[Rfam]
RNA sequence: AAGGUGGAUCCGAAAAGCCUGAAUAGAGUAGGAU
Numbered sequence: 001a002a003g004g005u006g007g008a009u010c011c012g013a014a015a016a017g018c019c020u021g022a023a024u025a026g027a028g029u030a031g032g033a034u
Stems, first nucleotide, its partner, number of pairs: 002020004010032002
The family of this 34-nucleotide sequence from Ohtaekwangia koreensis is "DUF805b RNA".
NCBI's taxonomy places the organism under Bacteria, Pseudomonadati, Bacteroidota, Cytophagales, Ohtaekwangia.